[Rfam]
RNA: Mammalian CPEB3 ribozyme
Organism: Crocodylus porosus
RNA sequence: AGAGGUCAAGAGUUGGAGGCCAUAGCAGAAGCACUCACGCCAUGGCCAAGUCAGUUUCCAACAAACCUGCAAAUUCUGUU
Number, nucleotide and partner (000 for none) at each position: 001a000002g000003a000004g000005g000006u000007c000008a000009a000010g000011a000012g000013u048014u000015g000016g000017a000018g047019g046020c045021c044022a000023u000024a080025g079026c078027a077028g076029a075030a074031g043032c000033a000034c000035u000036c000037a000038c000039g000040c000041c000042a000043u031044g021045g020046c019047c018048a013049a000050g000051u000052c069053a068054g067055u000056u065057u064058c000059c000060a000061a000062c000063a000064a057065a056066c000067c054068u053069g052070c000071a000072a000073a000074u030075u029076c028077u027078g026079u025080u024